Shown here is a 110-nucleotide RNA sequence from Vagococcus allomyrinae, a member of the family "azaaromatic riboswitch aptamer (yjdF RNA)". The match comes from Rfam's covariance-model search (77 bits).

RNA sequence: CGUAAUCACAAUCAAAAACACAAUUCGGUAGGUAGUCCGGAUGUGAGCAUCAUUUUGACGCUCAUCAGUAACCUUCCCUCCUCGGGUCGUCCAGUUGUGAUUUAGUAAAA
Numbered sequence: 001c002g003u004a005a006u007c008a009c010a011a012u013c014a015a016a017a018a019c020a021c022a023a024u025u026c027g028g029u030a031g032g033u034a035g036u037c038c039g040g041a042u043g044u045g046a047g048c049a050u051c052a053u054u055u056u057g058a059c060g061c062u063c064a065u066c067a068g069u070a071a072c073c074u075u076c077c078c079u080c081c082u083c084g085g086g087u088c089g090u091c092c093a094g095u096u097g098u099g100a101u102u103u104a105g106u107a108a109a110a
Base pairs, nucleotide, nucleotide: 004102005101006100007099008098009097010096011095023042024041025040026039027038028037043065044064045063046062047061048060076086077085078084